[Rfam]
About this RNA: Rfam assigns this 122-nucleotide RNA from Pollutimonas thiosulfatoxidans to the family "Betaproteobacteria-1 RNA". It scores 106 bits against the family's covariance model. NCBI's taxonomy places the organism under Bacteria, Pseudomonadati, Pseudomonadota, Burkholderiales, Pollutimonas. Rfam classes the family as a small RNA.
RNA sequence: CGCUUGGCUGGUCGGGGCAACUAACGACAGCAGCCGGGGGAUAGUGCUCUACUGUGGGAAAGCGUUUGAGACAGAGCAAAGGGUGGCGAAGCUAGCGCCCGAAACGCGAACGGCUGGCGGGU
Numbered sequence: 001c002g003c004u005u006g007g008c009u010g011g012u013c014g015g016g017g018c019a020a021c022u023a024a025c026g027a028c029a030g031c032a033g034c035c036g037g038g039g040g041a042u043a044g045u046g047c048u049c050u051a052c053u054g055u056g057g058g059a060a061a062g063c064g065u066u067u068g069a070g071a072c073a074g075a076g077c078a079a080a081g082g083g084u085g086g087c088g089a090a091g092c093u094a095g096c097g098c099c100c101g102a103a104a105c106g107c108g109a110a111c112g113g114c115u116g117g118c119g120g121g122u
Base pairs, nucleotide, nucleotide: 001040003038004037005036006035007034008033009032010031027055028054029053030052046077047076048075049074050073063106064105065104066103081100082099083098084097091118092117093116094115095114096113